[Rfam]
RNA sequence: GGCUCUGUGAUUACUUUGCCUAAUAUUUGGCAAUAUACGCUAUUCUGAUUCAACACAUGAACAGAGACAUUCUAGAAAGGAAAAGAUGAGAGCC
Numbered sequence: 001g002g003c004u005c006u007g008u009g010a011u012u013a014c015u016u017u018g019c020c021u022a023a024u025a026u027u028u029g030g031c032a033a034u035a036u037a038c039g040c041u042a043u044u045c046u047g048a049u050u051c052a053a054c055a056c057a058u059g060a061a062c063a064g065a066g067a068c069a070u071u072c073u074a075g076a077a078a079g080g081a082a083a084a085g086a087u088g089a090g091a092g093c094c
Base pairs, nucleotide, nucleotide: 001094002093003092004091005090
Small nucleolar RNA U54: a 94-nucleotide RNA from Cephalotus follicularis.
U54 is a C/D box small nucleolar RNA, which acts as a methylation guide for 18S ribosomal RNA in plants.
Taxonomically the source falls in Cephalotus (Eukaryota, Viridiplantae, Euphyllophyta, Pentapetalae).
The family is grouped with related families in Rfam's "U54 clan".